RNA: 6S / SsrS RNA
Organism: Thiorhodococcus minor
RNA sequence: CACCCCCUGUAGUGCUCGAUAGCGGCCUGGGUAUUUUCUUGAGCCUAAUCGCUACCCAGGGGACAUGAACGCAAAGCUGUUGAGCAUGUCCGUCACCGAGCGGAAAGCCUGAAGCCGAGUCAAGUGUCCCCACUUGAACCUCAUGGUUCAAGAACAAAGGCCAGCAACGGCACAGAUGGGGGGUGU
Numbered sequence: 001c002a003c004c005c006c007c008u009g010u011a012g013u014g015c016u017c018g019a020u021a022g023c024g025g026c027c028u029g030g031g032u033a034u035u036u037u038c039u040u041g042a043g044c045c046u047a048a049u050c051g052c053u054a055c056c057c058a059g060g061g062g063a064c065a066u067g068a069a070c071g072c073a074a075a076g077c078u079g080u081u082g083a084g085c086a087u088g089u090c091c092g093u094c095a096c097c098g099a100g101c102g103g104a105a106a107g108c109c110u111g112a113a114g115c116c117g118a119g120u121c122a123a124g125u126g127u128c129c130c131c132a133c134u135u136g137a138a139c140c141u142c143a144u145g146g147u148u149c150a151a152g153a154a155c156a157a158a159g160g161c162c163a164g165c166a167a168c169g170g171c172a173c174a175g176a177u178g179g180g181g182g183g184u185g186u
Base pairs, nucleotide, nucleotide: 002184003183004182005181006180007179008178009177010176012173013172014171015170017169018168036154037153038152040150041149042148043147044146045145060130061129062128064126065125066124071120072119076116078114084108085107089104090103091102092101093100